[Rfam]
RNA sequence: GUAGCACCCAAAUAUUGUAGCACUUUUCACAGAUUUGAUCGAAGAGUGCUUCCACAUUUGAGUGCCAC
Numbered sequence: 001g002u003a004g005c006a007c008c009c010a011a012a013u014a015u016u017g018u019a020g021c022a023c024u025u026u027u028c029a030c031a032g033a034u035u036u037g038a039u040c041g042a043a044g045a046g047u048g049c050u051u052c053c054a055c056a057u058u059u060g061a062g063u064g065c066c067a068c
Stems, first nucleotide, its partner, number of pairs: 004065004009060004015054001017052001019050006026043003
Shown here is a 68-nucleotide RNA from Callorhinus ursinus, a member of the family "mir-290 microRNA precursor family". Pairs were carried over by alignment from the consensus structure, which was predicted with RNAalifold. The family has 31 seed sequences and 565 matches in Rfam 15.1. Its Rfam clan is "mir-290 clan". On this family, see Suh et al., Dev Biol 2004: "Human embryonic stem cells express a unique set of microRNAs". Gene Ontology terms of the family: RISC complex and miRNA-mediated post-transcriptional gene silencing. The organism belongs to Callorhinus, within Eukaryota.